Background:
The family of this 117-nucleotide sequence from Gadus morhua is "Small nucleolar RNA SNORD67". A reference for the family is Huttenhofer et al. (2001), "RNomics: an experimental approach that identifies 201 candidates for novel, small, non-messenger RNAs in mouse", EMBO J. Lineage of the source: Eukaryota > Bilateria > Craniata > Zeiogadaria > Gadus. The match comes from Rfam's covariance-model search (55 bits).
RNA sequence: GUGCAUAAUGAUGAGUUGCACUGUCGGUGGGGUUGCAUUUGACUGCAGUGGCGGUCGCAAACCCACCCCGAGUCUCCAUGGUGACACACGAUGUGCACAGGGGCCAUCUGAACAAGC
Numbered sequence: 001g002u003g004c005a006u007a008a009u010g011a012u013g014a015g016u017u018g019c020a021c022u023g024u025c026g027g028u029g030g031g032g033u034u035g036c037a038u039u040u041g042a043c044u045g046c047a048g049u050g051g052c053g054g055u056c057g058c059a060a061a062c063c064c065a066c067c068c069c070g071a072g073u074c075u076c077c078a079u080g081g082u083g084a085c086a087c088a089c090g091a092u093g094u095g096c097a098c099a100g101g102g103g104c105c106a107u108c109u110g111a112a113c114a115a116g117c
Stems, first nucleotide, its partner, number of pairs: 004116001006114001024071004028065004033060003042055005
From the family's description: snoRNA HBII-166 belongs to the C/D family of snoRNAs. Rfam links the family to the GO terms RNA processing and nucleolus. By type it is a C/D-box small nucleolar RNA.